[Rfam]
RNA sequence: ACAAUGAUACUCCCGUCCAGUCACAGGUCGAGCGUAAAUACCCAUCAGGUGUAAAAACGCCGCAACCAAUGAGGGCGGCUCCGGGCGAUCCCCGGAGGGGUGCGAAUCCUGUGG
Numbered sequence: 001a002c003a004a005u006g007a008u009a010c011u012c013c014c015g016u017c018c019a020g021u022c023a024c025a026g027g028u029c030g031a032g033c034g035u036a037a038a039u040a041c042c043c044a045u046c047a048g049g050u051g052u053a054a055a056a057a058c059g060c061c062g063c064a065a066c067c068a069a070u071g072a073g074g075g076c077g078g079c080u081c082c083g084g085g086c087g088a089u090c091c092c093c094g095g096a097g098g099g100g101u102g103c104g105a106a107u108c109c110u111g112u113g114g
Stems, first nucleotide, its partner, number of pairs: 012111001013078006079097003083093003098110003
The family of this 114-nucleotide RNA from Lachnospiraceae bacterium M18-1 is "pemK RNA". A search with the family's covariance model found it, with a score of 54 bits. By type it is a cis-regulatory element.